[Rfam]
RNA sequence: GUGAUACUCAAACUGGGGGCUCUUUUGGGUUUUCUUUGGAAGAAAAGUGCCGCCAGGUUUUGAGUGUUAC
Numbered sequence: 001g002u003g004a005u006a007c008u009c010a011a012a013c014u015g016g017g018g019g020c021u022c023u024u025u026u027g028g029g030u031u032u033u034c035u036u037u038g039g040a041a042g043a044a045a046a047g048u049g050c051c052g053c054c055a056g057g058u059u060u061u062g063a064g065u066g067u068u069a070c
Base pairs, nucleotide, nucleotide: 004067005066006065007064008063009062010061011060012059016054017053018051019050020049022047023046025041026040